[Rfam]
Rfam assigns this 381-nucleotide RNA from Hoeflea marina to the family "Alphaproteobacteria transfer-messenger RNA".
Clan: tRNA clan.
Its family is annotated with RNA catabolic process in the Gene Ontology.
Taxonomically the source falls in Hoeflea (Bacteria, Pseudomonadati, Alphaproteobacteria, Hyphomicrobiales).
Rfam classes the family as a non-coding RNA gene.
RNA sequence: CCCCUUUUCACUGGCGACCGGGCAUCCUAUAUAGGGAGUGCCGCGCAAGCGGAUAUGGCGAUAAAUGAGCGGUGAAAUAAACCAUUCGGACCCGGGGGCGGUACCCGGCGCCUCCACCACAAUCCGGCGAAACCGUCGGAUCUCAACGGCCACGGAUGCGGCCGGAUUGUGCUGGGGGCGAAACAGGAUCGACGAGGGUGUAAAGAUCGUCUUUUUGCUCGGCAUUGUACCACCGUUAUCGGACUAAACUUGUAGUUGCAAAUGACAACUAUGCGGAAGCUCGUCUCGCUGCUUAAUUGCGGUGUGACACUUCAAACUAAGUCCUAAGGGGUCGCACUCUUGGGCGGGGUUCGGAGGUACCUGGCAACAGAAACCUCCACC
Numbered sequence: 001c002c003c004c005u006u007u008u009c010a011c012u013g014g015c016g017a018c019c020g021g022g023c024a025u026c027c028u029a030u031a032u033a034g035g036g037a038g039u040g041c042c043g044c045g046c047a048a049g050c051g052g053a054u055a056u057g058g059c060g061a062u063a064a065a066u067g068a069g070c071g072g073u074g075a076a077a078u079a080a081a082c083c084a085u086u087c088g089g090a091c092c093c094g095g096g097g098g099c100g101g102u103a104c105c106c107g108g109c110g111c112c113u114c115c116a117c118c119a120c121a122a123u124c125c126g127g128c129g130a131a132a133c134c135g136u137c138g139g140a141u142c143u144c145a146a147c148g149g150c151c152a153c154g155g156a157u158g159c160g161g162c163c164g165g166a167u168u169g170u171g172c173u174g175g176g177g178g179c180g181a182a183a184c185a186g187g188a189u190c191g192a193c194g195a196g197g198g199u200g201u202a203a204a205g206a207u208c209g210u211c212u213u214u215u216u217g218c219u220c221g222g223c224a225u226u227g228u229a230c231c232a233c234c235g236u237u238a239u240c241g242g243a244c245u246a247a248a249c250u251u252g253u254a255g256u257u258g259c260a261a262a263u264g265a266c267a268a269c270u271a272u273g274c275g276g277a278a279g280c281u282c283g284u285c286u287c288g289c290u291g292c293u294u295a296a297u298u299g300c301g302g303u304g305u306g307a308c309a310c311u312u313c314a315a316a317c318u319a320a321g322u323c324c325u326a327a328g329g330g331g332u333c334g335c336a337c338u339c340u341u342g343g344g345c346g347g348g349g350u351u352c353g354g355a356g357g358u359a360c361c362u363g364g365c366a367a368c369a370g371a372a373a374c375c376u377c378c379a380c381c
Stems, first nucleotide, its partner, number of pairs: 041052004057219005067212001069210005082198002086195003092108005109180007220235003225246001227244001230242002347362004353378006